[Rfam]
RNA sequence: GAGUUACCCUGUGUGGCAAGGUUAACCCCGUUCCGGGGGGAGCCGAAGCGAAAGCGAGUGUGAAUAGCGCGUCGAGUCGCACGGGGUAGACCCGAAACCGGGUGAGCUACCCAUGGCCAGGGUGAAGUUCCAGUAACAUGGAAUGGAGGCCCGAACCGUUACGUGUUGAAAAACGUUCGGAUGAGCUGUGGGUCGGAGUGAAAGGCUAACCAAACCCGGUGAUAGCUGGUU
Numbered sequence: 001g002a003g004u005u006a007c008c009c010u011g012u013g014u015g016g017c018a019a020g021g022u023u024a025a026c027c028c029c030g031u032u033c034c035g036g037g038g039g040g041a042g043c044c045g046a047a048g049c050g051a052a053a054g055c056g057a058g059u060g061u062g063a064a065u066a067g068c069g070c071g072u073c074g075a076g077u078c079g080c081a082c083g084g085g086g087u088a089g090a091c092c093c094g095a096a097a098c099c100g101g102g103u104g105a106g107c108u109a110c111c112c113a114u115g116g117c118c119a120g121g122g123u124g125a126a127g128u129u130c131c132a133g134u135a136a137c138a139u140g141g142a143a144u145g146g147a148g149g150c151c152c153g154a155a156c157c158g159u160u161a162c163g164u165g166u167u168g169a170a171a172a173a174c175g176u177u178c179g180g181a182u183g184a185g186c187u188g189u190g191g192g193u194c195g196g197a198g199u200g201a202a203a204g205g206c207u208a209a210c211c212a213a214a215c216c217c218g219g220u221g222a223u224a225g226c227u228g229g230u231u
Stems, first nucleotide, its partner, number of pairs: 005088013020044004026038003048055002058070004091229002094226001098219006107195001109193009118183001120152004127144006156180003161176004197207003